Background:
A member of the RNA family "mir-9195 microRNA precursor family" from Myotis lucifugus, 87 nucleotides long.
RNA sequence: AGAGGCCCUCCGUGGCCGGGGUGGAACGCUUGCCUCGUUACUUUGGCGACAAAGCAAGCAUUCCGCCAGGCUGUCCACAUUGCCUGC
Numbered sequence: 001a002g003a004g005g006c007c008c009u010c011c012g013u014g015g016c017c018g019g020g021g022u023g024g025a026a027c028g029c030u031u032g033c034c035u036c037g038u039u040a041c042u043u044u045g046g047c048g049a050c051a052a053a054g055c056a057a058g059c060a061u062u063c064c065g066c067c068a069g070g071c072u073g074u075c076c077a078c079a080u081u082g083c084c085u086g087c
Stems, first nucleotide, its partner, number of pairs: 004084003012074006020067007028059006037050003041046001
The match comes from Rfam's covariance-model search (91 bits).